[Rfam]
RNA: Small nucleolar RNA snoR104
RNA sequence: GAGGAGCAUCCAAAAGUUGGGAUGUUACCUGAUACAAUCUUCCUACAGAAAAUCUCUGUAGUAUUUUCCUGCUUGCAGUACUUAGCAAUAUCUGCAAGUCUCAGAUUAUCAGAGACAUGA
Numbered sequence: 001g002a003g004g005a006g007c008a009u010c011c012a013a014a015a016g017u018u019g020g021g022a023u024g025u026u027a028c029c030u031g032a033u034a035c036a037a038u039c040u041u042c043c044u045a046c047a048g049a050a051a052a053u054c055u056c057u058g059u060a061g062u063a064u065u066u067u068c069c070u071g072c073u074u075g076c077a078g079u080a081c082u083u084a085g086c087a088a089u090a091u092c093u094g095c096a097a098g099u100c101u102c103a104g105a106u107u108a109u110c111a112g113a114g115a116c117a118u119g120a
Stems, first nucleotide, its partner, number of pairs: 001030001003028001005026007055113003071099008079090002